Notes:
The record is a 75-nucleotide RNA from Alligator sinensis, which matches "Mammalian CPEB3 ribozyme" in Rfam. A search with the family's covariance model found it, with a score of 49 bits. The source organism's lineage runs through Eukaryota, Opisthokonta, Eumetazoa, Tetrapoda and Alligator.

[Rfam]
RNA sequence: AACUGCCAUAAUGACCAUAGCAGAAGUGCUCAUGUUGCAGCCCUGUCAGAUUUUAACGAAUCUGUGAAUUCUGCU
Numbered sequence: 001a002a003c004u005g006c007c008a009u010a011a012u013g014a015c016c017a018u019a020g021c022a023g024a025a026g027u028g029c030u031c032a033u034g035u036u037g038c039a040g041c042c043c044u045g046u047c048a049g050a051u052u053u054u055a056a057c058g059a060a061u062c063u064g065u066g067a068a069u070u071c072u073g074c075u
Base pairs, nucleotide, nucleotide: 013042015040019075020074021073022072023071024070025069026038027037028036047064048063049062050061051060052059053058